[Rfam]
RNA sequence: AACGUUCAUCUUCCGGCAGCUUCUCUUGAGCGCAUCUUCGCUUGAGCAAUUGCGUGCCACGGAGGACGGAAGUAGGGAAAACCCUUCCUGAAGGAACGCGCC
Numbered sequence: 001a002a003c004g005u006u007c008a009u010c011u012u013c014c015g016g017c018a019g020c021u022u023c024u025c026u027u028g029a030g031c032g033c034a035u036c037u038u039c040g041c042u043u044g045a046g047c048a049a050u051u052g053c054g055u056g057c058c059a060c061g062g063a064g065g066a067c068g069g070a071a072g073u074a075g076g077g078a079a080a081a082c083c084c085u086u087c088c089u090g091a092a093g094g095a096a097c098g099c100g101c102c
Stems, first nucleotide, its partner, number of pairs: 003098005009066007069099001075089005
A member of the RNA family "Glutamine riboswitch aptamer (glnA leader)" from Alkalinema sp. CACIAM 70d, 102 nucleotides long.
The match comes from Rfam's covariance-model search (46 bits).
The organism belongs to Alkalinema, within Bacteria.